[Rfam]
PrrF RNA: a 148-nucleotide RNA from Pseudomonas sp. GV071. Rfam describes the family as follows. PrrF RNA is a small RNA involved in iron homeostasis and is found exclusively in Pseudomonas species. The organism belongs to Pseudomonas, within Bacteria. It scores 155 bits against the family's covariance model. Rfam links the family to the GO term sRNA-mediated gene silencing. Pairs were carried over by alignment from the consensus structure, which is taken from published work. It is annotated as a small RNA. A reference for the family is Wilderman et al. (2004), "Identification of tandem duplicate regulatory small RNAs in Pseudomonas aeruginosa involved in iron homeostasis", Proc Natl Acad Sci U S A.
RNA sequence: UUGACUAUGAAAUGAGAAUUGUUAUUAUUAUCACAACUGGUCGCGAGAUCAGUCGAUAUUCUGAGAGACCUUCAGUCGGACUUUUCAGAUUAUCUCCUCAUCAGGCUAAUCACGGUUUUUGACCCAGCUCUUGCUGGGUCUUUUUUUG
Numbered sequence: 001u002u003g004a005c006u007a008u009g010a011a012a013u014g015a016g017a018a019u020u021g022u023u024a025u026u027a028u029u030a031u032c033a034c035a036a037c038u039g040g041u042c043g044c045g046a047g048a049u050c051a052g053u054c055g056a057u058a059u060u061c062u063g064a065g066a067g068a069c070c071u072u073c074a075g076u077c078g079g080a081c082u083u084u085u086c087a088g089a090u091u092a093u094c095u096c097c098u099c100a101u102c103a104g105g106c107u108a109a110u111c112a113c114g115g116u117u118u119u120u121g122a123c124c125c126a127g128c129u130c131u132u133g134c135u136g137g138g139u140c141u142u143u144u145u146u147u148g
Stems, first nucleotide, its partner, number of pairs: 034055001036053007061088003064084004069078001096105003121140008